[Rfam]
Rfam assigns this 31-nucleotide RNA sequence from Ceratopteris richardii to the family "Iron response element II".
For this family Rfam cites "A cytosolic protein binds to structural elements within the iron regulatory region of the transferrin receptor mRNA" (Koeller et al., Proc Natl Acad Sci U S A, 1989).
It is annotated as a cis-regulatory element.
Taxonomically the source falls in Ceratopteris (Eukaryota, Streptophytina, Embryophyta, Polypodiidae).
Rfam describes the family as follows. IRE, TFRC, SLC40A1, SDHB, SLC11A2, CDC42BPA, ACO2, ALAS2_H.SAPIENS, CDC14A, EPAS1, ALAS2, qoxD, Hao1, NDUFS1, transferrin, Aconitate.
The base pairs follow the family's consensus structure, which is taken from published work.
RNA sequence: AUUGUAUCUUUGACAGUGUUCAAAAUACUAU
Numbered sequence: 001a002u003u004g005u006a007u008c009u010u011u012g013a014c015a016g017u018g019u020u021c022a023a024a025a026u027a028c029u030a031u
Base pairs, nucleotide, nucleotide: 001031002030004028005027006026007025009024010023011022012021013020014018